[Rfam]
RNA: ZMP/ZTP riboswitch aptamer (pfl RNA motif)
RNA sequence: CCACGGGGCCGUGACUGGCGCGCUGGGAUGGACGAACCAUCGGGGAGCGGCCCCGGUUCCCUGAUCACCGGGGACCGGAACGUGCCGUGCGCCUGGGCCGACCUA
Numbered sequence: 001c002c003a004c005g006g007g008g009c010c011g012u013g014a015c016u017g018g019c020g021c022g023c024u025g026g027g028a029u030g031g032a033c034g035a036a037c038c039a040u041c042g043g044g045g046a047g048c049g050g051c052c053c054c055g056g057u058u059c060c061c062u063g064a065u066c067a068c069c070g071g072g073g074a075c076c077g078g079a080a081c082g083u084g085c086c087g088u089g090c091g092c093c094u095g096g097g098c099c100g101a102c103c104u105a
Stems, first nucleotide, its partner, number of pairs: 004055009015044002017093005028040004084098003